[Rfam]
RNA: FMN riboswitch aptamer (RFN element)
RNA sequence: AAGGGUCUUCAGGGCAGGGUGAAAUUCCCGACCGGCGGUGAUUUACAGUCGUUGAUAAUCUGUUACUUUUUAUGAAAUGUUAUAAUUUCUUGAUAUAGCUUUGAAGUGUAACAUACUCUAAAAAUAAAAGCUUUGUCAACUGAAUAAACUGUUUUAAGUCCGCGAGCAUGAGCUGAUGUGGUGUAAUUCCACAACCGACAGUACAGUCUGGAUGGGAGAAGACGAAA
Numbered sequence: 001a002a003g004g005g006u007c008u009u010c011a012g013g014g015c016a017g018g019g020u021g022a023a024a025u026u027c028c029c030g031a032c033c034g035g036c037g038g039u040g041a042u043u044u045a046c047a048g049u050c051g052u053u054g055a056u057a058a059u060c061u062g063u064u065a066c067u068u069u070u071u072a073u074g075a076a077a078u079g080u081u082a083u084a085a086u087u088u089c090u091u092g093a094u095a096u097a098g099c100u101u102u103g104a105a106g107u108g109u110a111a112c113a114u115a116c117u118c119u120a121a122a123a124a125u126a127a128a129a130g131c132u133u134u135g136u137c138a139a140c141u142g143a144a145u146a147a148a149c150u151g152u153u154u155u156a157a158g159u160c161c162g163c164g165a166g167c168a169u170g171a172g173c174u175g176a177u178g179u180g181g182u183g184u185a186a187u188u189c190c191a192c193a194a195c196c197g198a199c200a201g202u203a204c205a206g207u208c209u210g211g212a213u214g215g216g217a218g219a220a221g222a223c224g225a226a227a
Stems, first nucleotide, its partner, number of pairs: 005223006017029003031207002033197002035163004166173002177193005199210003